[Rfam]
RNA: Lysine riboswitch aptamer
Organism: Rossellomorea marisflavi
RNA sequence: UAGUGAGGUAGAGGUGCGAGAUUUAACAGUCCUUGACGGAGCUUGAGAAGCGUCGAUGUCAGGGAGAAGGAAAUGUCGCCGAAGUUGGAUCAUAUUUCUCGGUAUGACCUGCUGGGUCUGCAGUUAAGAGCUGCAGGACUGUCUCAAUAAACGUCCCGGUUUAUUGAGUUGUGCUAUCUCAUUG
Numbered sequence: 001u002a003g004u005g006a007g008g009u010a011g012a013g014g015u016g017c018g019a020g021a022u023u024u025a026a027c028a029g030u031c032c033u034u035g036a037c038g039g040a041g042c043u044u045g046a047g048a049a050g051c052g053u054c055g056a057u058g059u060c061a062g063g064g065a066g067a068a069g070g071a072a073a074u075g076u077c078g079c080c081g082a083a084g085u086u087g088g089a090u091c092a093u094a095u096u097u098c099u100c101g102g103u104a105u106g107a108c109c110u111g112c113u114g115g116g117u118c119u120g121c122a123g124u125u126a127a128g129a130g131c132u133g134c135a136g137g138a139c140u141g142u143c144u145c146a147a148u149a150a151a152c153g154u155c156c157c158g159g160u161u162u163a164u165u166g167a168g169u170u171g172u173g174c175u176a177u178c179u180c181a182u183u184g
Stems, first nucleotide, its partner, number of pairs: 006179006016079004021074004031064008083113003087109002090107006114140002117137008143168009